[Rfam]
RNA: JUMPstart RNA
Nucleotides: 038
Stems, first nucleotide, its partner, number of pairs: 008025005
Number, partner (000 for none) and nucleotide at each position: 001000g002000g003000g004000u005000a006000c007000u008025u009024u010023g011022g012021g013000a014000g015000c016000c017000a018000u019000a020000a021012c022011c023010u024009a025008a026000g027000g028000g029000c030000g031000g032000u033000a034000g035000c036000g037000u038000a